[Rfam]
RNA: mir-7398 microRNA precursor family
Organism: Sarcophilus harrisii
RNA sequence: UGUGUAGAGGUGAGAAAAUUACUGUGUUGUGGCUUGGUAAAUUUCUCGCCUUUUACAAU
Numbered sequence: 001u002g003u004g005u006a007g008a009g010g011u012g013a014g015a016a017a018a019u020u021a022c023u024g025u026g027u028u029g030u031g032g033c034u035u036g037g038u039a040a041a042u043u044u045c046u047c048g049c050c051u052u053u054u055a056c057a058a059u
Base pairs, nucleotide, nucleotide: 002056003055004054006053007052008051009050010049011048012047013046014045015044016043017042021038022037023036